[Rfam]
RNA: Small nucleolar RNA Z39
Organism: Athene cunicularia
RNA sequence: GUACAGAUGAUGAGCAUUUCAGUAUGACUACCAGAAAUGAUACUGUAAACGCUUUCUGAUGUG
Dot-bracket structure: .((((......((((....((((((..............)))))).....))).)....))))
Numbered sequence: 001g002u003a004c005a006g007a008u009g010a011u012g013a014g015c016a017u018u019u020c021a022g023u024a025u026g027a028c029u030a031c032c033a034g035a036a037a038u039g040a041u042a043c044u045g046u047a048a049a050c051g052c053u054u055u056c057u058g059a060u061g062u063g
Stems, first nucleotide, its partner, number of pairs: 002063004012055001013053003020045006